Background: This 144-nucleotide RNA sequence from Rhodococcus sp. ABRD24 belongs to the Rfam family "mraW RNA". The source organism's lineage runs through Bacteria, Bacillati, Actinomycetes, Mycobacteriales and Rhodococcus.
RNA sequence: AUUGGCGAGUGCCGCGAGGCCUCUGCCCGAAGCGCGACCCUGACGCACUUCCCCAGUGUCAGGUGCGCCACCGGGAACCUGACGCACUUCCCCAGUGUCAGGUUCCCCGAUCGGACAGGGACCUCGAGGCAUUCGCCUCCCGGA
Numbered sequence: 001a002u003u004g005g006c007g008a009g010u011g012c013c014g015c016g017a018g019g020c021c022u023c024u025g026c027c028c029g030a031a032g033c034g035c036g037a038c039c040c041u042g043a044c045g046c047a048c049u050u051c052c053c054c055a056g057u058g059u060c061a062g063g064u065g066c067g068c069c070a071c072c073g074g075g076a077a078c079c080u081g082a083c084g085c086a087c088u089u090c091c092c093c094a095g096u097g098u099c100a101g102g103u104u105c106c107c108c109g110a111u112c113g114g115a116c117a118g119g120g121a122c123c124u125c126g127a128g129g130c131a132u133u134c135g136c137c138u139c140c141c142g143g144a
Base pairs, nucleotide, nucleotide: 010131011130012129013128015126016125018123019122021120022119023118024117025116027114028113029112030111034107036105037104039102040101041100042099043098044097045096046095